This 113-nucleotide RNA from Larimichthys crocea belongs to the Rfam family "Potassium channel RNA editing signal".
[Rfam]
RNA sequence: GCAGGUACGGCGACAUGGUCCCGAAGACGAUCAUGGGGAAGAUCUUCGGCUCGGUGUGUUCUCUCAGCGGCGUGCUCGUCAUCGCUCUGCCGGUUCCCGUCAUCGUCUCCAAC
Numbered sequence: 001g002c003a004g005g006u007a008c009g010g011c012g013a014c015a016u017g018g019u020c021c022c023g024a025a026g027a028c029g030a031u032c033a034u035g036g037g038g039a040a041g042a043u044c045u046u047c048g049g050c051u052c053g054g055u056g057u058g059u060u061c062u063c064u065c066a067g068c069g070g071c072g073u074g075c076u077c078g079u080c081a082u083c084g085c086u087c088u089g090c091c092g093g094u095u096c097c098c099g100u101c102a103u104c105g106u107c108u109c110c111a112a113c
Base pairs, nucleotide, nucleotide: 001113004110005109007106008105009104010103012101013100014099017096018095020093036076037075039073048062049061
Rfam classes the family as a cis-regulatory element.